Source information: This 64-nucleotide RNA from Atractosteus spatula belongs to the Rfam family "MAT2A 3'UTR stem loop E". Pairs were carried over by alignment from the consensus structure, which is taken from published work. The source organism's lineage runs through Eukaryota, Opisthokonta, Craniata, Actinopteri and Atractosteus. A search with the family's covariance model found it, with a score of 59 bits. The family has 28 seed sequences and 337 matches in Rfam 15.1.

[Rfam]
RNA sequence: CCAGCAACCCCUGUGGGCCGAGGUGUCCUACAGAAAAGCCUUGGGUUUUCUCGCAGGGUUCUGG
Dot-bracket structure: ((((.(((((..((((((((((((((...))......))))))).....))))).)))))))))